RNA sequence: UUGACGACUGAAUGAGAAUUGUUAUUAUUAGCACCACUGGUCGCGAGAUCAGUUGGUAAGCUGGAAGACCAGGCAGUCGGACUUUCAGGUUAUCUCCUCAUCAGGCUAAUCACGGUUUUGACCCGGCUCUUGCCGGGUCUUUUUUUG
Numbered sequence: 001u002u003g004a005c006g007a008c009u010g011a012a013u014g015a016g017a018a019u020u021g022u023u024a025u026u027a028u029u030a031g032c033a034c035c036a037c038u039g040g041u042c043g044c045g046a047g048a049u050c051a052g053u054u055g056g057u058a059a060g061c062u063g064g065a066a067g068a069c070c071a072g073g074c075a076g077u078c079g080g081a082c083u084u085u086c087a088g089g090u091u092a093u094c095u096c097c098u099c100a101u102c103a104g105g106c107u108a109a110u111c112a113c114g115g116u117u118u119u120g121a122c123c124c125g126g127c128u129c130u131u132g133c134c135g136g137g138u139c140u141u142u143u144u145u146u147g
Stems, first nucleotide, its partner, number of pairs: 034055001036053007061088007069079001096105003120139008

A member of the RNA family "PrrF RNA" from Stutzerimonas stutzeri, 147 nucleotides long. Pairs were carried over by alignment from the consensus structure, which is taken from published work. A search with the family's covariance model found it, with a score of 148 bits. It is annotated as a small RNA.